[Rfam]
RNA sequence: ACAAUAUAAUGUCUCCGAGUCUAUCAUUCCUAAAAAGGUAUUUAACCUAUGGAAUUUAGACCGAAGGGUAUAAUUGGAAACCGUUAUGCCUCCCAUUGUGGAAAGGAGUCCGCUGAUACAAUAG
Number, nucleotide and partner (000 for none) at each position: 001a000002c000003a000004a117005u000006a000007u000008a000009a000010u000011g110012u000013c108014u107015c106016c105017g000018a000019g061020u060021c059022u058023a057024u000025c000026a055027u054028u053029c052030c051031u000032a000033a000034a000035a000036a048037g047038g046039u045040a000041u000042u000043u000044a000045a039046c038047c037048u036049a000050u000051g030052g029053a028054a027055u026056u000057u023058a022059g021060a020061c019062c000063g000064a000065a000066g091067g090068g089069u088070a087071u086072a085073a084074u083075u000076g081077g000078a000079a000080a000081c076082c000083g074084u073085u072086a071087u070088g069089c068090c067091u066092c101093c100094c000095a000096u000097u000098g000099u000100g093101g092102a000103a000104a000105g016106g015107a014108g013109u000110c011111c000112g000113c000114u000115g000116a000117u004118a000119c000120a000121a000122u000123a000124g000
Shown here is a 124-nucleotide RNA sequence from Anaerovirgula multivorans, a member of the family "Molybdenum/Tungsten riboswitch aptamer (Moco RNA motif)". Its family is annotated with tungstate binding, molybdenum ion binding and regulation of gene expression in the Gene Ontology. The literature on the family includes a 2008 paper in Mol Microbiol by Regulski et al., "in molybdenum cofactor and tungsten cofactor metabolism". The family's consensus secondary structure is taken from published work. The source organism's lineage runs through Bacteria, Bacillati, Clostridia, Natronincolaceae and Anaerovirgula.